[Rfam]
Nucleotides: 094
Stems, first nucleotide, its partner, number of pairs: 005084002008081003018075007026067002029064004034055001036053006
Number, partner (000 for none) and nucleotide at each position: 001000g002000u003000a004000u005084g006083c007000c008081u009080g010079u011000u012000u013000g014000u015000g016000g017000a018075u019074g020073g021072u022071g023070u024069u025000c026067a027066g028000c029064a030063c031062c032061a033000a034055g035000g036053a037052c038051a039050g040049g041048u042000c043000u044000g045000u046000a047000u048041g049040c050039u051038u052037g053036u054000g055034u056000g057000u058000g059000g060000a061032u062031g063030g064029u065000u066027u067026u068000c069024a070023g071022c072021a073020c074019c075018a076000a077000g078000g079010a080009c081008a082000c083006g084005u085000c086000u087000g088000u089000a090000u091000g092000c093000c094000u
Rfam assigns this 94-nucleotide RNA sequence from Branchiostoma lanceolatum to the family "mir-2060 microRNA precursor family". The organism belongs to Branchiostoma, within Eukaryota. A search with the family's covariance model found it, with a score of 85 bits. Rfam 15.1 lists 3,696 matches to the family in 4 species.